[Rfam]
RNA: c-di-AMP riboswitch aptamer (ydaO/yuaA leader)
RNA sequence: AUACACCCAUCGACGAACUCAUUCGUACGGCAGGAGCGGGGGACCCAGGUAAGUCGCCGGACCGGACGACUCACGUGGCGCAGCGCGUGACACAGCGCGCCGCACCGCGUGUUCGCACCGGGACGGCUUGGGGUAAAGCCGUGCCUCUCACGGGGCGCGACCGGGCACCUCCCCGCCCGAACCCGACAGCUCACCUCGCAGGCGUAGGAGAGGAACGUC
Dot-bracket structure: ..........((.(....((............)).((((((....(((((...........................................................................)))))(((......((((((........))))))...((((........))))...))).........)))))).).))...............